[Rfam]
RNA sequence: GCUGGCGAUGACGACACACUUGCCCUCACCGAGAGCAGUGCUUGCUGAGGAGAGCAGUUCUGUGUGCUCAGGGAAGCCGAGCCAGC
Numbered sequence: 001g002c003u004g005g006c007g008a009u010g011a012c013g014a015c016a017c018a019c020u021u022g023c024c025c026u027c028a029c030c031g032a033g034a035g036c037a038g039u040g041c042u043u044g045c046u047g048a049g050g051a052g053a054g055c056a057g058u059u060c061u062g063u064g065u066g067c068u069c070a071g072g073g074a075a076g077c078c079g080a081g082c083c084a085g086c
Base pairs, nucleotide, nucleotide: 001086002085003084004083005082006081
A member of the RNA family "Small nucleolar RNA SNORD103/SNORD85" from Rhinopomastus cyanomelas, 86 nucleotides long.
The literature on the family includes a 2001 paper in EMBO J by Huttenhofer et al., "RNomics: an experimental approach that identifies 201 candidates for novel, small, non-messenger RNAs in mouse".
Its family is annotated with nucleolus and RNA processing in the Gene Ontology.
The base pairs follow the family's consensus structure.
NCBI's taxonomy places the organism under Eukaryota, Opisthokonta, Metazoa, Neoaves, Rhinopomastus.